[Rfam]
RNA sequence: GAGGAAUGGGCAAAAGAUUAUUAAUCUGAAAAUCUUUUAAGACUUUUAAGAUCCAAAUAACUUCACUGGUUAC
Numbered sequence: 001g002a003g004g005a006a007u008g009g010g011c012a013a014a015a016g017a018u019u020a021u022u023a024a025u026c027u028g029a030a031a032a033u034c035u036u037u038u039a040a041g042a043c044u045u046u047u048a049a050g051a052u053c054c055a056a057a058u059a060a061c062u063u064c065a066c067u068g069g070u071u072a073c
Stems, first nucleotide, its partner, number of pairs: 001064004
RNA: Small nucleolar RNA SNORD19
Organism: Artemisia annua